[Rfam]
RNA sequence: UAGAUACCCACCAUGCCUUUUGCUCUGCACUCAAUAAAUAUUUGUAUGUGAAUGUGUAGCAAAAGACAGGACGGGGACCCA
Number, nucleotide and partner (000 for none) at each position: 001u000002a000003g079004a000005u077006a000007c000008c074009c073010a000011c000012c000013a000014u068015g067016c000017c065018u064019u063020u062021u061022g060023c059024u058025c000026u056027g055028c054029a053030c000031u051032c050033a049034a000035u048036a047037a000038a045039u000040a000041u000042u000043u000044g000045u038046a000047u036048g035049u033050g032051a031052a000053u029054g028055u027056g026057u000058a024059g023060c022061a021062a020063a019064a018065g017066a000067c015068a014069g000070g000071a000072c000073g009074g008075g000076g000077a005078c000079c003080c000081a000